RNA: mir-3 microRNA precursor family
RNA sequence: GUUAUGCGACUAACUUCGUUCAGAUGAUGUUCACGUUAGCGAUUUCAUCACUGGGCAAAGUUUGUCGCAUAAA
Numbered sequence: 001g002u003u004a005u006g007c008g009a010c011u012a013a014c015u016u017c018g019u020u021c022a023g024a025u026g027a028u029g030u031u032c033a034c035g036u037u038a039g040c041g042a043u044u045u046c047a048u049c050a051c052u053g054g055g056c057a058a059a060g061u062u063u064g065u066c067g068c069a070u071a072a073a
Base pairs, nucleotide, nucleotide: 005069006068007067008066009065010064012062013061014060018056019055021053022052023051